A member of the RNA family "mir-399 microRNA precursor family" from Zizania palustris, 105 nucleotides long. Its family is annotated with RISC complex and miRNA-mediated post-transcriptional gene silencing in the Gene Ontology. mir-399 was identified in both Arabidopsis thaliana and Oryza sativa computationally and was later experimentally verified. mir-399 is thought to target mRNAs coding for a phosphatase transporter. The mature sequence is excised from the 3' arm of the hairpin. It scores 60 bits against the family's covariance model. On this family, see Jones-Rhoades and Bartel, Mol Cell 2004: "Computational Identification of Plant MicroRNAs and Their Targets, Including a Stress-Induced miRNA".
RNA sequence: AGAUGAAUUCCGGGGCAAAUUUCCUUUGGCAGUAGUCCAGUAACCUUAGGCACCUCUGUUGAAUUGCAACAUCUGCCAAAGGACAACUUGCCCAGCAAUGCAGCU
Numbered sequence: 001a002g003a004u005g006a007a008u009u010c011c012g013g014g015g016c017a018a019a020u021u022u023c024c025u026u027u028g029g030c031a032g033u034a035g036u037c038c039a040g041u042a043a044c045c046u047u048a049g050g051c052a053c054c055u056c057u058g059u060u061g062a063a064u065u066g067c068a069a070c071a072u073c074u075g076c077c078a079a080a081g082g083a084c085a086a087c088u089u090g091c092c093c094a095g096c097a098a099u100g101c102a103g104c105u
Stems, first nucleotide, its partner, number of pairs: 005101001007099003011095001013093006021085001022083003027078006035070001